[Rfam]
RNA sequence: UGAUGGCAAUGAUGAUUUUUAAAUUUACUAAUCACCUGACAAAUAUGAGGGUGUUCAGUCACUACCUCAUCUGAUGCCAUCU
Numbered sequence: 001u002g003a004u005g006g007c008a009a010u011g012a013u014g015a016u017u018u019u020u021a022a023a024u025u026u027a028c029u030a031a032u033c034a035c036c037u038g039a040c041a042a043a044u045a046u047g048a049g050g051g052u053g054u055u056c057a058g059u060c061a062c063u064a065c066c067u068c069a070u071c072u073g074a075u076g077c078c079a080u081c082u
Base pairs, nucleotide, nucleotide: 002081003080004079005078006077007076
Rfam assigns this 82-nucleotide RNA from Felis catus to the family "Small nucleolar RNA SNORD11B". The family has 37 seed sequences and 733 matches in Rfam 15.1. By type it is a C/D-box small nucleolar RNA. Pairs were carried over by alignment from the consensus structure, which was predicted with WAR. Clan: SNORD11 clan. Rfam's curators put it in the seed alignment. Rfam links the family to the GO terms RNA processing and nucleolus.